[Rfam]
RNA sequence: UGUCUCCUCCACCGAUCCCAAUUUGGUGGUUUCAGGCCCGGCGUCAACACGUCGGGCCUUUUUCU
Numbered sequence: 001u002g003u004c005u006c007c008u009c010c011a012c013c014g015a016u017c018c019c020a021a022u023u024u025g026g027u028g029g030u031u032u033c034a035g036g037c038c039c040g041g042c043g044u045c046a047a048c049a050c051g052u053c054g055g056g057c058c059u060u061u062u063u064c065u
Stems, first nucleotide, its partner, number of pairs: 009029007035058008
RNA: Betaproteobacteria toxic small RNA
Organism: beta proteobacterium AAP99